[Rfam]
RNA: 6S / SsrS RNA
RNA sequence: AGAGUCCUGCGAUGUACGUGUCCCUGACUGUUUUGUAACCAACGCAUUGUAAAAAGGGAGCCCGGGGUCACCUGUGCUCGUGGCAGCCGCCGGCAAGUGCGGAACCGCAAAUACAGGUGCAGGGCACCCACCUGCUGAGAGCAGGUUCAAAACUUAAGGAGCACGGCAUAACGGGGCUCUU
Numbered sequence: 001a002g003a004g005u006c007c008u009g010c011g012a013u014g015u016a017c018g019u020g021u022c023c024c025u026g027a028c029u030g031u032u033u034u035g036u037a038a039c040c041a042a043c044g045c046a047u048u049g050u051a052a053a054a055a056g057g058g059a060g061c062c063c064g065g066g067g068u069c070a071c072c073u074g075u076g077c078u079c080g081u082g083g084c085a086g087c088c089g090c091c092g093g094c095a096a097g098u099g100c101g102g103a104a105c106c107g108c109a110a111a112u113a114c115a116g117g118u119g120c121a122g123g124g125c126a127c128c129c130a131c132c133u134g135c136u137g138a139g140a141g142c143a144g145g146u147u148c149a150a151a152a153c154u155u156a157a158g159g160a161g162c163a164c165g166g167c168a169u170a171a172c173g174g175g176g177c178u179c180u181u
Stems, first nucleotide, its partner, number of pairs: 002179008012169004017165003030153006037147004056129003060125004065120001070118007082106002087102004